[Rfam]
RNA: SAM riboswitch aptamer (S box leader)
Organism: Leekyejoonella antrihumi
RNA sequence: CGCUCAUCCAGAGGGGCAGAGGGAUACGGCCCGACGAAGCCCCGGCAACCCGGUCAUCCGCGCAUCACCGCGCCGACCGUCAGGUGCCAACUCCGUCCCGCAUGCCGGGAGAGAUGAGGA
Numbered sequence: 001c002g003c004u005c006a007u008c009c010a011g012a013g014g015g016g017c018a019g020a021g022g023g024a025u026a027c028g029g030c031c032c033g034a035c036g037a038a039g040c041c042c043c044g045g046c047a048a049c050c051c052g053g054u055c056a057u058c059c060g061c062g063c064a065u066c067a068c069c070g071c072g073c074c075g076a077c078c079g080u081c082a083g084g085u086g087c088c089a090a091c092u093c094c095g096u097c098c099c100g101c102a103u104g105c106c107g108g109g110a111g112a113g114a115u116g117a118g119g120a
Base pairs, nucleotide, nucleotide: 003118004117005116006115007114008113013043014042015041016040017039021032022031023030026096027095028094029093044088045087046086047085049084050083051079052078053077054076092112097109098108099107100106